[Rfam]
RNA sequence: CCGUGCAGCCGGGGAGAUAGCGGUGCCCUGUACCUGCAAUCCGCUAUAGCAGGGGUGUUGUCCCAUCGAGGGUCUUUUGACGGAGAGCUGCCCAAAGUAAGUGGCGUUGACACUUGGGUCUUGCGCAACAGGAACUUGUGAACCGUGUCAGGUCAGGAAUGAAGCAGCACUAAGCAAUCCUUCCUGUGUGACGCGAGGGUGCCUGAGCCUAGCUAACUGCUUUGGUAACGUCUUCUGAUUUUGAUUCGACAUGGGAUGCACGG
Numbered sequence: 001c002c003g004u005g006c007a008g009c010c011g012g013g014g015a016g017a018u019a020g021c022g023g024u025g026c027c028c029u030g031u032a033c034c035u036g037c038a039a040u041c042c043g044c045u046a047u048a049g050c051a052g053g054g055g056u057g058u059u060g061u062c063c064c065a066u067c068g069a070g071g072g073u074c075u076u077u078u079g080a081c082g083g084a085g086a087g088c089u090g091c092c093c094a095a096a097g098u099a100a101g102u103g104g105c106g107u108u109g110a111c112a113c114u115u116g117g118g119u120c121u122u123g124c125g126c127a128a129c130a131g132g133a134a135c136u137u138g139u140g141a142a143c144c145g146u147g148u149c150a151g152g153u154c155a156g157g158a159a160u161g162a163a164g165c166a167g168c169a170c171u172a173a174g175c176a177a178u179c180c181u182u183c184c185u186g187u188g189u190g191a192c193g194c195g196a197g198g199g200u201g202c203c204u205g206a207g208c209c210u211a212g213c214u215a216a217c218u219g220c221u222u223u224g225g226u227a228a229c230g231u232c233u234u235c236u237g238a239u240u241u242u243g244a245u246u247c248g249a250c251a252u253g254g255g256a257u258g259c260a261c262g263g
Stems, first nucleotide, its partner, number of pairs: 001263007008056003011029004016024001018022001033053005061256006070247005079239001081237005089227002093224006101217002103214003113207007120197006126188002129186005136177004145170004153162003
Bacterial large signal recognition particle RNA: a 263-nucleotide sequence from Clostridium sp. CAG:62. From the family's description: The signal recognition particle (SRP) is a universally conserved ribonucleoprotein involved in the co-translational targeting of proteins to membranes. By type it is a non-coding RNA gene. For this family Rfam cites "Kinship in the SRP RNA family" (Rosenblad et al., RNA Biol, 2009). It scores 191 bits against the family's covariance model.